[Rfam]
RNA sequence: AAAGUCGGUCAGACAAUCGCUUUUCGCAAUUCGCGGAGAGAGGAAAGUCCGGGCUCCACAGGGCAAAGCGCCAGGUAACACCUGGGAGGCGCGAGCCUACGGAAAGUGCCACAGAAAAUAUACCGCCUGUCCAAUCUUGGGUGGGUAAGGGUGAAAUGGUGCGGUAAGAGCGCACCGCAUUGCUGGUAACAGCAAUGGCAUGGAAAACCCCGCUUGGAGCAAGACCAAAUAGGAAUCCAUUGCAAUUUAUUGCAACACAUGGCCCAUGUGGGAUUCGGGUAGGUCGCUUGAGGCAAACGGUGACGUUUGUCCCAGAUGAAUGAUUGUCCGCGACAGAACCCGGCUUAUCGACCGACUUUGUUA
Numbered sequence: 001a002a003a004g005u006c007g008g009u010c011a012g013a014c015a016a017u018c019g020c021u022u023u024u025c026g027c028a029a030u031u032c033g034c035g036g037a038g039a040g041a042g043g044a045a046a047g048u049c050c051g052g053g054c055u056c057c058a059c060a061g062g063g064c065a066a067a068g069c070g071c072c073a074g075g076u077a078a079c080a081c082c083u084g085g086g087a088g089g090c091g092c093g094a095g096c097c098u099a100c101g102g103a104a105a106g107u108g109c110c111a112c113a114g115a116a117a118a119u120a121u122a123c124c125g126c127c128u129g130u131c132c133a134a135u136c137u138u139g140g141g142u143g144g145g146u147a148a149g150g151g152u153g154a155a156a157u158g159g160u161g162c163g164g165u166a167a168g169a170g171c172g173c174a175c176c177g178c179a180u181u182g183c184u185g186g187u188a189a190c191a192g193c194a195a196u197g198g199c200a201u202g203g204a205a206a207a208c209c210c211c212g213c214u215u216g217g218a219g220c221a222a223g224a225c226c227a228a229a230u231a232g233g234a235a236u237c238c239a240u241u242g243c244a245a246u247u248u249a250u251u252g253c254a255a256c257a258c259a260u261g262g263c264c265c266a267u268g269u270g271g272g273a274u275u276c277g278g279g280u281a282g283g284u285c286g287c288u289u290g291a292g293g294c295a296a297a298c299g300g301u302g303a304c305g306u307u308u309g310u311c312c313c314a315g316a317u318g319a320a321u322g323a324u325u326g327u328c329c330g331c332g333a334c335a336g337a338a339c340c341c342g343g344c345u346u347a348u349c350g351a352c353c354g355a356c357u358u359u360g361u362u363a
Stems, first nucleotide, its partner, number of pairs: 001359010011348001012328007020040008045346003049343005054219004061265004066215005071085005086100001087098004101210002106208002109203002123150002125146009158176006177199001178197008223285004233276006256270005292311008

This 363-nucleotide sequence from Legionella londiniensis belongs to the Rfam family "Bacterial RNase P class A". The organism belongs to Legionella, within Bacteria. It scores 355 bits against the family's covariance model. The base pairs follow the family's consensus structure, which is taken from published work. Rfam links the family to the GO terms tRNA processing, ribonuclease P activity and dimeric ribonuclease P complex.